The record is a 132-nucleotide sequence from Myotis lucifugus, which matches "U4 spliceosomal RNA" in Rfam. The family is grouped with related families in Rfam's "U4 clan".
[Rfam]
RNA sequence: AGCUUUGCACAAUGGCAGUAUCGUGGCCAAUGAGGUUUAUCCGAGGUGCGAUUAUUGCUAAUUUUAUAUAUAUAUAUAAUUUUAUAUAAAAUUUAAAAAGCUGCUGAGUAAUUCUGGAUUUUGUUCUUAAAA
Numbered sequence: 001a002g003c004u005u006u007g008c009a010c011a012a013u014g015g016c017a018g019u020a021u022c023g024u025g026g027c028c029a030a031u032g033a034g035g036u037u038u039a040u041c042c043g044a045g046g047u048g049c050g051a052u053u054a055u056u057g058c059u060a061a062u063u064u065u066a067u068a069u070a071u072a073u074a075u076a077u078a079a080u081u082u083u084a085u086a087u088a089a090a091a092u093u094u095a096a097a098a099a100g101c102u103g104c105u106g107a108g109u110a111a112u113u114c115u116g117g118a119u120u121u122u123g124u125u126c127u128u129a130a131a132a
Stems, first nucleotide, its partner, number of pairs: 020052005026047003034042002082130003086124009

Rfam classes the family as a spliceosomal small nuclear RNA.